[Rfam]
RNA sequence: ACGGAUACAAUGGGGAUCAAGGUAGAAGCGUUCAUGUCGCGAUCCCCAUCAAGUAAUACCACCAAUAUUACUUGCGAAUUCUACC
Numbered sequence: 001a002c003g004g005a006u007a008c009a010a011u012g013g014g015g016a017u018c019a020a021g022g023u024a025g026a027a028g029c030g031u032u033c034a035u036g037u038c039g040c041g042a043u044c045c046c047c048a049u050c051a052a053g054u055a056a057u058a059c060c061a062c063c064a065a066u067a068u069u070a071c072u073u074g075c076g077a078a079u080u081c082u083a084c085c
Base pairs, nucleotide, nucleotide: 013046014045015044016043017042018041021085022084023083024082025081026080027079028040029039030038050074051073052072053071054070055069056068057067058066